[Rfam]
RNA: SAH (S-adenosyl-L-homocysteine) riboswitch aptamer
RNA sequence: CAGUCCGAGGAGCGUUGCGACGAAAUGACCCAUUUCGCCAGGCUCGGAAAUCACCACCGCAACUGCGCUCACGUUAC
Numbered sequence: 001c002a003g004u005c006c007g008a009g010g011a012g013c014g015u016u017g018c019g020a021c022g023a024a025a026u027g028a029c030c031c032a033u034u035u036c037g038c039c040a041g042g043c044u045c046g047g048a049a050a051u052c053a054c055c056a057c058c059g060c061a062a063c064u065g066c067g068c069u070c071a072c073g074u075u076a077c
Stems, first nucleotide, its partner, number of pairs: 004048005021037006